RNA sequence: CGAAAUCAUGCUAGAUCAUUAACAAGUAUCAUGUAAAUUGAAUUUUUGUAUAUAUCAAUUACAUGUUAUUCGUUCUUGAACUUAAUGGUUUU
Numbered sequence: 001c002g003a004a005a006u007c008a009u010g011c012u013a014g015a016u017c018a019u020u021a022a023c024a025a026g027u028a029u030c031a032u033g034u035a036a037a038u039u040g041a042a043u044u045u046u047u048g049u050a051u052a053u054a055u056c057a058a059u060u061a062c063a064u065g066u067u068a069u070u071c072g073u074u075c076u077u078g079a080a081c082u083u084a085a086u087g088g089u090u091u092u
Stems, first nucleotide, its partner, number of pairs: 002092008013082002016079003021074003025070004030065007038058004
A member of the RNA family "mir-982 microRNA precursor family" from Drosophila simulans, 92 nucleotides long. Rfam links the family to the GO terms miRNA-mediated post-transcriptional gene silencing and RISC complex.